[Rfam]
RNA sequence: CAGGUGUCCCGUUAGGUGAGGCUCCUGUGCGCGUACGUGUCCGCUACCCAGGAAGGUCGAGAGACCCCAACGGGUCAACAGGCUCUGCCGGAUCAAGGCUUGGCCUAACGCGGACCGGGACCGCCCCUCGGGCGGGCUCUAGGCGCACAGUGCUGAAGCUCGACGCUGGGAGACGCC
Numbered sequence: 001c002a003g004g005u006g007u008c009c010c011g012u013u014a015g016g017u018g019a020g021g022c023u024c025c026u027g028u029g030c031g032c033g034u035a036c037g038u039g040u041c042c043g044c045u046a047c048c049c050a051g052g053a054a055g056g057u058c059g060a061g062a063g064a065c066c067c068c069a070a071c072g073g074g075u076c077a078a079c080a081g082g083c084u085c086u087g088c089c090g091g092a093u094c095a096a097g098g099c100u101u102g103g104c105c106u107a108a109c110g111c112g113g114a115c116c117g118g119g120a121c122c123g124c125c126c127c128u129c130g131g132g133c134g135g136g137c138u139c140u141a142g143g144c145g146c147a148c149a150g151u152g153c154u155g156a157a158g159c160u161c162g163a164c165g166c167u168g169g170g171a172g173a174c175g176c177c
Stems, first nucleotide, its partner, number of pairs: 005173001007171004011164002013096001015160003020154003025150008039115001041113004046075004055066004081105004087099003118138002
A member of the RNA family "M-box riboswitch aptamer (ykoK leader)" from Streptomyces alkaliterrae, 177 nucleotides long. The base pairs follow the family's consensus structure. The family has 159 seed sequences and 1,095 matches in Rfam 15.1. From the family's description: M-box riboswitch, also know as ykoK leader is described as a metaloregulatory RNA that sense divalent metals and function as a genetic control element of genes related to divalent metal transport in bacteria.